Description: Shown here is a 101-nucleotide RNA from Paenibacillus abyssi, a member of the family "Purine riboswitch aptamer". Pairs were carried over by alignment from the consensus structure, which is taken from published work. The match comes from Rfam's covariance-model search (73 bits).
RNA sequence: ACGAACAACAGCAUACCUUUUCGUAUAAUUCCAAGAAUAGGCUUGGAAGUCUCUACGAGGUCACCGUAAAUGAUCUGGCUACGAAAAGCGGGAAAAGUAAU
Numbered sequence: 001a002c003g004a005a006c007a008a009c010a011g012c013a014u015a016c017c018u019u020u021u022c023g024u025a026u027a028a029u030u031c032c033a034a035g036a037a038u039a040g041g042c043u044u045g046g047a048a049g050u051c052u053c054u055a056c057g058a059g060g061u062c063a064c065c066g067u068a069a070a071u072g073a074u075c076u077g078g079c080u081a082c083g084a085a086a087a088g089c090g091g092g093a094a095a096a097g098u099a100a101u
Base pairs, nucleotide, nucleotide: 018087019086020085021084022083023082024081025080029048030047031046032045033044034043035042058076059075060074061073062072063071